[Rfam]
RNA: small nucleolar RNA snoR117
RNA sequence: UGCCAAUGAUGAGCGAUGUAUUGUCCGUACCAUCUGAAAAGAGGCUUUUAUAGGCCUCUUUUGAUUAGUAAAAUCGCAUCCAAUUUCUGAGGCAU
Numbered sequence: 001u002g003c004c005a006a007u008g009a010u011g012a013g014c015g016a017u018g019u020a021u022u023g024u025c026c027g028u029a030c031c032a033u034c035u036g037a038a039a040a041g042a043g044g045c046u047u048u049u050a051u052a053g054g055c056c057u058c059u060u061u062u063g064a065u066u067a068g069u070a071a072a073a074u075c076g077c078a079u080c081c082a083a084u085u086u087c088u089g090a091g092g093c094a095u
Stems, first nucleotide, its partner, number of pairs: 001094004